[Rfam]
Notes: Plastid-clpP 5UTR RNA: a 74-nucleotide sequence from Apostasia shenzhenica. A reference for the family is Richter et al. (2023), "Retrograde signaling in plants: A critical review focusing on the GUN pathway and beyond", Plant Commun. From the family's description: Plastid clpP is a non-coding RNA (ncRNA) recognised in plastids.
RNA sequence: AUUCUGUUUAUAUUUUAAAAAACAAGGGGAAACAGAUCUUAUUCUAUACCCGAUAAAUACCAAUACGCAAUGGG
Dot-bracket structure: .((.(((((..........))))).)).....................(((......((....))......)))
By type it is a cis-regulatory element. Pairs were carried over by alignment from the consensus structure, which was predicted with LocARNA. The family has 343 seed sequences and 2,105 matches in Rfam 15.1. Rfam's curators put it in the seed alignment.